[Rfam]
RNA: Streptomyces RNA 3920
Organism: Streptomyces sp. CB03234
RNA sequence: GAUAGGUCUCUGUCGCUACAGUGAUUGGACACUGACACAGAGUCAACUAGCCUUGUGCACGCGGUCAGCCGCAGGAAAACACGGACGGUCCGAGCCAUGAGGGGGGAGGCUCGGACCGUCCGUU
Numbered sequence: 001g002a003u004a005g006g007u008c009u010c011u012g013u014c015g016c017u018a019c020a021g022u023g024a025u026u027g028g029a030c031a032c033u034g035a036c037a038c039a040g041a042g043u044c045a046a047c048u049a050g051c052c053u054u055g056u057g058c059a060c061g062c063g064g065u066c067a068g069c070c071g072c073a074g075g076a077a078a079a080c081a082c083g084g085a086c087g088g089u090c091c092g093a094g095c096c097a098u099g100a101g102g103g104g105g106g107a108g109g110c111u112c113g114g115a116c117c118g119u120c121c122g123u124u
Stems, first nucleotide, its partner, number of pairs: 001014005015051004021032003033045004058074001061072004075082001084120013098105001